The record is a 72-nucleotide sequence from Medicago truncatula, which matches "MIR2629 microRNA precursor family" in Rfam. Taxonomically the source falls in Medicago (Eukaryota, Magnoliopsida, Mesangiospermae, fabids). It scores 61 bits against the family's covariance model. Rfam links the family to the GO terms miRNA-mediated post-transcriptional gene silencing and RISC complex.

[Rfam]
RNA sequence: AGUUCAGAUUUCCUCGGCAGUUAACUGCCGUCGGUUUACUAAAAAUUUCGGCAGUAAACUGCCGAAGGGCAU
Dot-bracket structure: ..........((.(((((((((.(((((((..................))))))).))))))))).))....
Numbered sequence: 001a002g003u004u005c006a007g008a009u010u011u012c013c014u015c016g017g018c019a020g021u022u023a024a025c026u027g028c029c030g031u032c033g034g035u036u037u038a039c040u041a042a043a044a045a046u047u048u049c050g051g052c053a054g055u056a057a058a059c060u061g062c063c064g065a066a067g068g069g070c071a072u
Stems, first nucleotide, its partner, number of pairs: 011068002014065009024055007